[Rfam]
RNA: Small nucleolar RNA SNORA14
Organism: Vicugna pacos
RNA sequence: UUGCAUUCUUAAACCCUCUUGGUAGCGUCGCCCUAAACGCUUCCAGGAUAUGAGUGAAUGCUACAGAAACUGCAGGGGAGUCCAAAGGGCUGCGCGUCUCAUGUGGCUCAGUCUUAUUUCAUACCUGCGACAUCU
Numbered sequence: 001u002u003g004c005a006u007u008c009u010u011a012a013a014c015c016c017u018c019u020u021g022g023u024a025g026c027g028u029c030g031c032c033c034u035a036a037a038c039g040c041u042u043c044c045a046g047g048a049u050a051u052g053a054g055u056g057a058a059u060g061c062u063a064c065a066g067a068a069a070c071u072g073c074a075g076g077g078g079a080g081u082c083c084a085a086a087g088g089g090c091u092g093c094g095c096g097u098c099u100c101a102u103g104u105g106g107c108u109c110a111g112u113c114u115u116a117u118u119u120c121a122u123a124c125c126u127g128c129g130a131c132a133u134c135u
Stems, first nucleotide, its partner, number of pairs: 003061004008054004017048006024041003065135003071129006086115007094107002098103001